[Rfam]
RNA sequence: UGUGUCAGUGUAGGUUCAUCAAAUGUGACAAACAUGUUUACUGGUCAUUCAAGUGGGACAAAGGAAAUAUCCUUUUAAAACUCAAGCAAACUGGGUGUUUGUCUUGUAAACUGUCGGAGGAAAUAAAC
Numbered sequence: 001u002g003u004g005u006c007a008g009u010g011u012a013g014g015u016u017c018a019u020c021a022a023a024u025g026u027g028a029c030a031a032a033c034a035u036g037u038u039u040a041c042u043g044g045u046c047a048u049u050c051a052a053g054u055g056g057g058a059c060a061a062a063g064g065a066a067a068u069a070u071c072c073u074u075u076u077a078a079a080a081c082u083c084a085a086g087c088a089a090a091c092u093g094g095g096u097g098u099u100u101g102u103c104u105u106g107u108a109a110a111c112u113g114u115c116g117g118a119g120g121a122a123a124u125a126a127a128c
Stems, first nucleotide, its partner, number of pairs: 035060005042051003070121006083106001084104001086102006
Small nucleolar RNA SNORA27: a 128-nucleotide RNA from Lipotes vexillifer. Rfam 15.1 lists 819 matches to the family in 543 species. Rfam's curators write: ACA27 is a member of the H/ACA class of snoRNA that guide the sites of modification of uridines to pseudouridines.